[Rfam]
RNA sequence: AUGAAGAUAUAGGGAGAGAGUUAUUUAAAAUAACCGCCGACGAAGUAAAUCUUUCAGGCAAAUGGACCUAUAUUGGACG
Numbered sequence: 001a002u003g004a005a006g007a008u009a010u011a012g013g014g015a016g017a018g019a020g021u022u023a024u025u026u027a028a029a030a031u032a033a034c035c036g037c038c039g040a041c042g043a044a045g046u047a048a049a050u051c052u053u054u055c056a057g058g059c060a061a062a063u064g065g066a067c068c069u070a071u072a073u074u075g076g077a078c079g
Base pairs, nucleotide, nucleotide: 006074007073008072009071010070011069012068013067020034021033022032023031036059037058038057039055040054043053044052045051
RNA: Glycine riboswitch aptamer
Organism: Fusobacterium necrogenes